[Rfam]
RNA: Transposase-1 RNA
RNA sequence: CGUUCAGAGAUUGCCUCUGUCGUACCUACGACAGUAGAUACGAGAAUGUGAUUAUUGA
Numbered sequence: 001c002g003u004u005c006a007g008a009g010a011u012u013g014c015c016u017c018u019g020u021c022g023u024a025c026c027u028a029c030g031a032c033a034g035u036a037g038a039u040a041c042g043a044g045a046a047u048g049u050g051a052u053u054a055u056u057g058a
Base pairs, nucleotide, nucleotide: 009053010052011051012050013049014048020043021042022041023040026037027036028035